[Rfam]
RNA sequence: UGGUAGAUGCACCUUGAUCUUCAAUUCCCCUAGUUUGGCUAAAACUCACUGGGGGUUUUCUUU
Numbered sequence: 001u002g003g004u005a006g007a008u009g010c011a012c013c014u015u016g017a018u019c020u021u022c023a024a025u026u027c028c029c030c031u032a033g034u035u036u037g038g039c040u041a042a043a044a045c046u047c048a049c050u051g052g053g054g055g056u057u058u059u060c061u062u063u
Stems, first nucleotide, its partner, number of pairs: 002013003027055008037046002

Nitrogen stress-induced RNA 1: a 63-nucleotide RNA from Anabaena sp. 90. The match comes from Rfam's covariance-model search (54 bits). On this family, see Ionescu et al., J Mol Biol 2010: "Heterocyst-specific transcription of NsiR1, a non-coding RNA encoded in a tandem array of direct repeats in cyanobacteria". The source organism's lineage runs through Bacteria, Bacillati, Cyanophyceae, Nostocales and Anabaena.